Rfam assigns this 132-nucleotide RNA from Mytilus coruscus to the family "Small Cajal body specific RNA 8". scaRNAs are a specific class of small nuclear RNAs which localise to the Cajal bodies and guide the modification of RNA polymerase II transcribed spliceosomal RNAs U1, U2, U4, U5 and U12. NCBI's taxonomy places the organism under Eukaryota, Metazoa, Mytilida, Mytilidae, Mytilus. By type it is a small Cajal body RNA. On this family, see Darzacq et al., EMBO J 2002: "Cajal body-specific small nuclear RNAs: a novel class of 2'-O-methylation and pseudouridylation guide RNAs". The match comes from Rfam's covariance-model search (58 bits).
RNA sequence: UGGAAGUUUAUGGAUACACAUCUGACAAUUGAGUACAGGUUAGGUGUCACUGAAAGCUUCCUAUAGAAAAUCUCUCUCUGAUGACUACAGUAUAUCUAGAUAAUGCUGUGGACAGAUACGGAGUGUACAAUA
Number, nucleotide and partner (000 for none) at each position: 001u000002g061003g060004a059005a058006g057007u056008u000009u000010a000011u000012g000013g000014a000015u000016a000017c000018a047019c046020a045021u044022c000023u000024g000025a040026c039027a000028a000029u000030u000031g000032a000033g000034u000035a000036c000037a000038g000039g026040u025041u000042a000043g000044g021045u020046g019047u018048c000049a000050c000051u000052g000053a000054a000055a000056g007057c006058u005059u004060c003061c002062u000063a000064u000065a000066g000067a000068a000069a000070a000071u000072c125073u000074c123075u122076c121077u120078c000079u000080g000081a000082u000083g000084a000085c111086u110087a109088c000089a000090g106091u105092a104093u103094a000095u000096c000097u000098a000099g000100a000101u000102a000103a093104u092105g091106c090107u000108g000109u087110g086111g085112a000113c000114a000115g000116a000117u000118a000119c000120g077121g076122a075123g074124u000125g072126u000127a000128c000129a000130a000131u000132a000